[Rfam]
Annotation:
The family of this 115-nucleotide sequence from Limonium tenellum is "Plastid-psbA-1 3UTR RNA". The base pairs follow the family's consensus structure, which was predicted with LocARNA. Rfam's curators write: Plastid psbA-1 is a non-coding RNA (ncRNA) present in plastids. It was identified in inverted repeat sequences in the 3 prime untranslate region (3UTR) of photosystem II quinone-binding protein (psbA). The family is grouped with related families in Rfam's "Plastid-psbA 3UTR RNA clan". The sequence is in the family's curated seed alignment. A reference for the family is Richter et al. (2023), "Retrograde signaling in plants: A critical review focusing on the GUN pathway and beyond", Plant Commun.

RNA sequence: UCCAAGCUCCAUCUAUAAAUGGAUAAGAUUUAGGUCUUAAUGUAGUCGAGUUUUUGAAAGUAAAGGGGCACUAACCAAUUGUUUGUUAAAACAAAGAGUUGGUAUUGCUCCUUUA
Numbered sequence: 001u002c003c004a005a006g007c008u009c010c011a012u013c014u015a016u017a018a019a020u021g022g023a024u025a026a027g028a029u030u031u032a033g034g035u036c037u038u039a040a041u042g043u044a045g046u047c048g049a050g051u052u053u054u055u056g057a058a059a060g061u062a063a064a065g066g067g068g069c070a071c072u073a074a075c076c077a078a079u080u081g082u083u084u085g086u087u088a089a090a091a092c093a094a095a096g097a098g099u100u101g102g103u104a105u106u107g108c109u110c111c112u113u114u115a
Stems, first nucleotide, its partner, number of pairs: 008023005062114009072104002077099001080096001083094002